A member of the RNA family "U12 minor spliceosomal RNA" from Felis catus, 152 nucleotides long. The pairing is the family consensus, mapped onto this sequence. Rfam classes the family as a spliceosomal small nuclear RNA. On this family, see Tarn and Steitz, Trends Biochem Sci 1997: "Pre-mRNA splicing: the discovery of a new spliceosome doubles the challenge". The family is grouped with related families in Rfam's "U2 clan".

RNA sequence: AUCCCUUAAACUUACAAGUAGGGAAACAUGAUGACUUCGGAUGAUGCCCGAAUCCUCACUGCUUAUGUGACACAAAUUUUUGAGUGGGUAAAGGUUGCCUCUGGGGUGACCCGCCUGCUUUGCGGGGUGCCUUGGAGUUGGUGAUCUGUCUG
Numbered sequence: 001a002u003c004c005c006u007u008a009a010a011c012u013u014a015c016a017a018g019u020a021g022g023g024a025a026a027c028a029u030g031a032u033g034a035c036u037u038c039g040g041a042u043g044a045u046g047c048c049c050g051a052a053u054c055c056u057c058a059c060u061g062c063u064u065a066u067g068u069g070a071c072a073c074a075a076a077u078u079u080u081u082g083a084g085u086g087g088g089u090a091a092a093g094g095u096u097g098c099c100u101c102u103g104g105g106g107u108g109a110c111c112c113g114c115c116u117g118c119u120u121u122g123c124g125g126g127g128u129g130c131c132u133u134g135g136a137g138u139u140g141g142u143g144a145u146c147u148g149u150c151u152g
Stems, first nucleotide, its partner, number of pairs: 004023005033054002036051002039048002056070004085152005092147007101135002104132005110126005